[Rfam]
Rfam assigns this 177-nucleotide sequence from Terrabacter sp. MAHUQ-38 to the family "c-di-AMP riboswitch aptamer (ydaO/yuaA leader)". Rfam's curators write: This family represents a conserved RNA structure found upstream of the ydaO and yuaA genes in Bacillus subtilis and related genes in other bacteria. The literature on the family includes a 2004 paper in Proc Natl Acad Sci U S A by Barrick et al., "New RNA motifs suggest an expanded scope for riboswitches in bacterial genetic control".
RNA sequence: AUCGACCUGAGGCUCAGUACGAACCGCAUGGCAGGAGCGGGGGAACCACUUUCUCCGGGCGUCGAGAGACGUCCUCGGGGUGAAGCCCUCCGUGGACCCGAACGGGUCCGAGCGAAGGCCGGGCGAGUACCUCCAGCCCGAACCCGACAGCUCACCUCGUAGGCGUCGAGAGGUCAA
Number, nucleotide and partner (000 for none) at each position: 001a000002u036003c035004g000005a000006c000007c000008u000009g000010a000011g000012g000013c000014u000015c000016a000017g000018u000019a000020c000021g000022a000023a000024c000025c000026g000027c000028a000029u000030g000031g000032c000033a000034g000035g003036a002037g160038c159039g158040g157041g156042g155043g000044a000045a000046c000047c077048a000049c000050u000051u000052u000053c000054u000055c000056c000057g000058g000059g000060c000061g000062u000063c000064g000065a000066g000067a000068g000069a000070c000071g000072u000073c000074c000075u000076c000077g047078g145079g144080g143081u000082g000083a000084a000085g000086c118087c117088c000089u115090c000091c000092g000093u000094g000095g000096a000097c000098c000099c000100g000101a000102a000103c000104g000105g000106g000107u000108c000109c000110g000111a000112g000113c000114g000115a089116a000117g087118g086119c000120c000121g139122g138123g137124c136125g000126a000127g000128u000129a000130c000131c000132u000133c000134c000135a000136g124137c123138c122139c121140g000141a000142a000143c080144c079145c078146g000147a000148c000149a000150g000151c000152u000153c000154a000155c042156c041157u040158c039159g038160u037161a000162g000163g000164c000165g000166u000167c000168g000169a000170g000171a000172g000173g000174u000175c000176a000177a000